Shown here is a 64-nucleotide RNA from Myotis davidii, a member of the family "mir-9242 microRNA precursor family". Rfam 15.1 lists 940 matches to the family in 18 species.
RNA sequence: GGCCUCCCUCUGCGGGGUGAUCAAUCUCAGGGCCCUCAGAUUGAUUGCCCCACAGAGGGAGGCC
Numbered sequence: 001g002g003c004c005u006c007c008c009u010c011u012g013c014g015g016g017g018u019g020a021u022c023a024a025u026c027u028c029a030g031g032g033c034c035c036u037c038a039g040a041u042u043g044a045u046u047g048c049c050c051c052a053c054a055g056a057g058g059g060a061g062g063c064c
Stems, first nucleotide, its partner, number of pairs: 001064012014051014029036002